[Rfam]
RNA sequence: CUUGCUGAGGAGCGUUGCGACAGUCUUGCGAAUCACGCCUGACUGCCAGGCUCAGUAAAGGUCCAUUGUGGGAGCUUCUCUCACUACAACGGCGCUCACCCAAU
Numbered sequence: 001c002u003u004g005c006u007g008a009g010g011a012g013c014g015u016u017g018c019g020a021c022a023g024u025c026u027u028g029c030g031a032a033u034c035a036c037g038c039c040u041g042a043c044u045g046c047c048a049g050g051c052u053c054a055g056u057a058a059a060g061g062u063c064c065a066u067u068g069u070g071g072g073a074g075c076u077u078c079u080c081u082c083a084c085u086a087c088a089a090c091g092g093c094g095c096u097c098a099c100c101c102a103a104u
Base pairs, nucleotide, nucleotide: 002058003057004056005055006054007053008052021045022044023043024042025041
A member of the RNA family "SAH (S-adenosyl-L-homocysteine) riboswitch aptamer" from Orrella marina, 104 nucleotides long. Pairs were carried over by alignment from the consensus structure, which is taken from published work. For this family Rfam cites "Riboswitches that sense S-adenosylhomocysteine and activate genes involved in coenzyme recycling" (Wang et al., Mol Cell, 2008). A search with the family's covariance model found it, with a score of 64 bits.